[Rfam]
RNA sequence: GGGUCAGCUUAGCAUAGUGGAUACUUCGUUCAAUUUGUCUUGCAUAUACAAAUAGGGGUCCCGGGUUCAAGCCCGGGGCUUACAUCCACUCGCGCCGUCUAACCCGUUC
Numbered sequence: 001g002g003g004u005c006a007g008c009u010u011a012g013c014a015u016a017g018u019g020g021a022u023a024c025u026u027c028g029u030u031c032a033a034u035u036u037g038u039c040u041u042g043c044a045u046a047u048a049c050a051a052a053u054a055g056g057g058g059u060c061c062c063g064g065g066u067u068c069a070a071g072c073c074c075g076g077g078g079c080u081u082a083c084a085u086c087c088a089c090u091c092g093c094g095c096c097g098u099c100u101a102a103c104c105c106g107u108u109c
Stems, first nucleotide, its partner, number of pairs: 002104003006100002012093002017089004025071002028068001
RNA: Vault RNA